Shown here is a 61-nucleotide RNA from Ralstonia pseudosolanacearum, a member of the family "Betaproteobacteria toxic small RNA". A reference for the family is Kimelman et al. (2012), "A vast collection of microbial genes that are toxic to bacteria", Genome Res.
RNA sequence: UGUCUCCUCCACCCUCCUUGGUGGAUUGCGGCCCGAGCACUUGGUGCUCGGGCCAUUUUUC
Numbered sequence: 001u002g003u004c005u006c007c008u009c010c011a012c013c014c015u016c017c018u019u020g021g022u023g024g025a026u027u028g029c030g031g032c033c034c035g036a037g038c039a040c041u042u043g044g045u046g047c048u049c050g051g052g053c054c055a056u057u058u059u060u061c
Stems, first nucleotide, its partner, number of pairs: 008025006030054008

About this RNA: Overexpression in amino aid rich medium attenuates growth, suggesting role in repressing amino acid intake and metabolism.